[Rfam]
RNA sequence: AUACUUACCUGGCAAGGGAGACACUGUGAUCAAGAAGGCGGUUCACCCAGGGCGAGGCUCAGCCGUUGCACUCCGGCUGUGCUGACCCCUGCGAAUUUCCCAAAUGUGGAAAUCUCGAUUGCAUAAUUUCUGGUAGUGGUGGACUGCAUUCGCGCUCUCCCCUG
Numbered sequence: 001a002u003a004c005u006u007a008c009c010u011g012g013c014a015a016g017g018g019a020g021a022c023a024c025u026g027u028g029a030u031c032a033a034g035a036a037g038g039c040g041g042u043u044c045a046c047c048c049a050g051g052g053c054g055a056g057g058c059u060c061a062g063c064c065g066u067u068g069c070a071c072u073c074c075g076g077c078u079g080u081g082c083u084g085a086c087c088c089c090u091g092c093g094a095a096u097u098u099c100c101c102a103a104a105u106g107u108g109g110a111a112a113u114c115u116c117g118a119u120u121g122c123a124u125a126a127u128u129u130c131u132g133g134u135a136g137u138g139g140u141g142g143a144c145u146g147c148a149u150u151c152g153c154g155c156u157c158u159c160c161c162c163u164g
Stems, first nucleotide, its partner, number of pairs: 012122004016048003020044002023042005049090004054086001056083003060079005092117003095113001096111002099109002138163002141160003146155002
RNA: U1 spliceosomal RNA